A member of the RNA family "mir-2 microRNA precursor family" from Drosophila persimilis, 68 nucleotides long. Lineage of the source: Eukaryota > Eumetazoa > Ecdysozoa > Ephydroidea > Sophophora. Rfam's curators put it in the seed alignment.

[Rfam]
RNA sequence: UUACGCGUCAAAAUGACUGUGAGCUAUGUGUUUUUGAUCUCAUAUCACAGCCAUUUUGACGAGUUUGA
Numbered sequence: 001u002u003a004c005g006c007g008u009c010a011a012a013a014u015g016a017c018u019g020u021g022a023g024c025u026a027u028g029u030g031u032u033u034u035u036g037a038u039c040u041c042a043u044a045u046c047a048c049a050g051c052c053a054u055u056u057u058g059a060c061g062a063g064u065u066u067g068a
Stems, first nucleotide, its partner, number of pairs: 006061010017050006025044003